[Rfam]
Nucleotides: 235
Base pairs, nucleotide, nucleotide: 010234011233012232017227018226020224023220024219026218027217028216030213031212034209035208039184040183042181043179044178045177046176047175048174050171051168052167053166054165055164056163057162059088060087061086062085063084065082068080069079070078071077093160094159095158096157097156098155106146107145112139113138114137116135118134119133120132121131122130123129124128186206187205188204190202191201192200193199
Number, partner (000 for none) and nucleotide at each position: 001000g002000u003000g004000a005000g006000g007000u008000g009000a010234u011233g012232a013000c014000a015000a016000a017227g018226u019000u020224u021000a022000u023220c024219c025000a026218u027217u028216c029000u030213c031212u032000g033000a034209g035208u036000g037000c038000a039184g040183u041000g042181g043179u044178g045177c046176u047175g048174c049000c050171c051168u052167c053166c054165u055164g056163c057162a058000g059088c060087a061086c062085c063084c064000u065082g066000a067000u068080u069079c070078c071077u072000g073000u074000u075000c076000u077071a078070g079069g080068g081000u082065c083000u084063g085062g086061g087060u088059g089000c090000u091000g092000u093160g094159c095158a096157g097156c098155c099000u100000c101000c102000a103000g104000a105000g106146a107145c108000c109000c110000u111000c112139c113138a114137g115000u116135c117000u118134c119133c120132c121131a122130g123129u124128g125000u126000c127000c128124u129123g130122c131121u132120g133119g134118g135116g136000c137114c138113u139112g140000c141000u142000g143000u144000g145107g146106u147000g148000u149000g150000u151000g152000g153000c154000u155098g156097g157096c158095u159094g160093c161000c162057u163056g164055c165054a166053g167052g168051a169000u170000u171050g172000a173000a174048g175047u176046g177045g178044u179043g180000c181042u182000g183040g184039c185000a186206g187205g188204g189000u190202u191201g192200g193199a194000g195000c196000c197000c198000c199193u200192c201191c202190a203000u204188c205187c206186c207000c208035a209034c210000u211000g212031a213030g214000a215000u216028g217027a218026g219024g220023g221000a222000u223000g224020a225000c226018g227017u228000c229000u230000g231000a232012u233011c234010a235000c
Rfam assigns this 235-nucleotide RNA sequence from Leptosomus discolor to the family "Small nucleolar RNA SNORD17". About the family: The snoRNA HBI-43 belongs to the C/D family of snoRNAs, guiding 2'O-ribose methylation at position U3797 of the 28S rRNA. Pseudouridylation in position U3797 is predicted to be guided by the H/ACA snoRNA ACA48. For this family Rfam cites "RNomics: an experimental approach that identifies 201 candidates for novel, small, non-messenger RNAs in mouse" (Huttenhofer et al., EMBO J, 2001). Rfam classes the family as a C/D-box small nucleolar RNA. Rfam links the family to the GO terms RNA processing and nucleolus.